[Rfam]
RNA sequence: CGAUCGGGAGGCCUCUGGUGGGACAGGGGCCGGGAAUGGAUCGCACCCGCCGUCUCGUAUGGGGGCGCCGCUGUAGCCCGACAGCAGGCGUU
Dot-bracket structure: (((((....((((((((......)))))))).......)))))....................(((((.((((........))))..)))))
Annotation
Rhodo-rpoB RNA: a 92-nucleotide RNA sequence.